[Rfam]
Nucleotides: 180
Base pairs, nucleotide, nucleotide: 004176005175006174007173008172009171010170011169012167013166014165015164017163018162019161033150034149035148037147038146039145040144041143042142058129059128060127062125063124064123065122072118073117074116075115076114077113078112085106086105088103089102090101091100092099
Number, partner (000 for none) and nucleotide at each position: 001000u002000u003000u004176u005175c006174c007173c008172u009171g010170c011169c012167u013166g014165g015164u016000u017163c018162g019161c020000g021000a022000a023000g024000a025000u026000c027000c028000u029000a030000u031000a032000c033150u034149c035148u036000u037147u038146g039145a040144a041143c042142c043000a044000a045000u046000g047000c048000g049000a050000u051000a052000u053000g054000c055000a056000a057000c058129g059128g060127u061000u062125g063124c064123g065122g066000a067000a068000a069000u070000u071000u072118g073117u074116g075115a076114u077113a078112u079000g080000g081000g082000c083000g084000u085106g086105c087000g088103c089102a090101u091100c092099a093000c094000u095000c096000g097000u098000u099092u100091g101090a102089u103088g104000c105086g106085c107000u108000c109000a110000a111000a112078g113077u114076g115075u116074c117073a118072c119000u120000a121000a122065c123064u124063g125062c126000g127060a128059c129058c130000a131000u132000c133000u134000u135000g136000a137000a138000c139000c140000c141000a142042g143041g144040u145039u146038c147037a148035g149034g150033a151000u152000g153000c154000c155000g156000g157000u158000c159000u160000a161019g162018c163017g164015g165014c166013u167012a168000a169011g170010g171009c172008g173007g174006g175005g176004a177000u178000c179000u180000u

This 180-nucleotide RNA belongs to the Rfam family "6S / SsrS RNA". It is annotated as a non-coding RNA gene.